[Rfam]
A member of the RNA family "Small nucleolar RNA SNORA5" from Hirundo rustica, 126 nucleotides long.
The family's RNA type in Rfam is H/ACA-box small nucleolar RNA.
Rfam describes the family as follows. ACA5 is a member of the H/ACA class of snoRNA that guide the sites of modification of uridines to pseudouridines.
Its Rfam clan is "SNORA5 clan".
RNA sequence: AGCAGCGGCGAAAAUCGAGAGACUGCUCCAAGAAGCAGCGCCCAAAAGGCUGCCACCCAAAUCAAAGCAGCUCUGUGGCAGGAAGAAGUGGCUUGGAUUACCAGAGAUUUUUGGCUGCUGACUCCG
Numbered sequence: 001a002g003c004a005g006c007g008g009c010g011a012a013a014a015u016c017g018a019g020a021g022a023c024u025g026c027u028c029c030a031a032g033a034a035g036c037a038g039c040g041c042c043c044a045a046a047a048g049g050c051u052g053c054c055a056c057c058c059a060a061a062u063c064a065a066a067g068c069a070g071c072u073c074u075g076u077g078g079c080a081g082g083a084a085g086a087a088g089u090g091g092c093u094u095g096g097a098u099u100a101c102c103a104g105a106g107a108u109u110u111u112u113g114g115c116u117g118c119u120g121a122c123u124c125c126g
Stems, first nucleotide, its partner, number of pairs: 002053004017039001023038005067118006079104001081102002